The family of this 124-nucleotide RNA sequence from Pseudaestuariivita atlantica is "Alphaproteobacterial ar14". From the family's description: Smr14C2 was renamed NfeR1 (Nodule Formation Efficiency RNA) highly expressed in salt stress and during the symbiotic interaction on legume roots. A search with the family's covariance model found it, with a score of 70 bits. By type it is a small RNA. Taxonomically the source falls in Pseudaestuariivita (Bacteria, Pseudomonadota, Rhodobacterales, Paracoccaceae). Pairs were carried over by alignment from the consensus structure.

RNA sequence: CCGGAUCGGCCCGCUCCUCUCCUCCUCCCUGGAGCGUGCCGGUACCUCCCGAUGCCUUCCUCCCAUUCGGCAUCGGGACAGACAGAGCGGCGGCGUCCACCUCCUCCCGGACGUCGCCGUUUUU
Numbered sequence: 001c002c003g004g005a006u007c008g009g010c011c012c013g014c015u016c017c018u019c020u021c022c023u024c025c026u027c028c029c030u031g032g033a034g035c036g037u038g039c040c041g042g043u044a045c046c047u048c049c050c051g052a053u054g055c056c057u058u059c060c061u062c063c064c065a066u067u068c069g070g071c072a073u074c075g076g077g078a079c080a081g082a083c084a085g086a087g088c089g090g091c092g093g094c095g096u097c098c099a100c101c102u103c104c105u106c107c108c109g110g111a112c113g114u115c116g117c118c119g120u121u122u123u124u
Base pairs, nucleotide, nucleotide: 007041008040009039012036013035014034015033016032017031047078048077049076050075051074052073053072054071055070088119089118090117091116092115093114094113095112096111097110098109